[Rfam]
RNA: Ribosomal protein L10 leader
Organism: Streptococcus zalophi
RNA sequence: AGGUUUUAAAUAAACUGACCUAAGACAGUAGGGGAGUUCGCUCAUAAUAUUCCUACCGAGGCACAAAACGUUAAUAAACGGAUUGUACUUUCGUGUCUGGGUUUAGAUGCGAUUUUUUUGUGUCUAG
Number, nucleotide and partner (000 for none) at each position: 001a000002g000003g000004u000005u000006u000007u000008a000009a000010a000011u000012a000013a000014a000015c000016u000017g000018a000019c000020c000021u000022a000023a000024g000025a000026c000027a000028g056029u055030a054031g053032g052033g051034g043035a042036g041037u000038u000039c000040g000041c036042u035043c034044a000045u000046a000047a000048u000049a000050u000051u033052c032053c031054u030055a029056c028057c000058g000059a000060g000061g000062c000063a000064c000065a000066a000067a000068a000069c000070g000071u000072u000073a000074a000075u000076a000077a000078a000079c000080g000081g000082a000083u000084u000085g000086u000087a000088c000089u000090u000091u112092c111093g110094u109095g108096u107097c106098u105099g104100g000101g000102u000103u000104u099105a098106g097107a096108u095109g094110c093111g092112a091113u000114u000115u000116u000117u000118u000119u000120g000121u000122g000123u000124c000125u000126a000127g000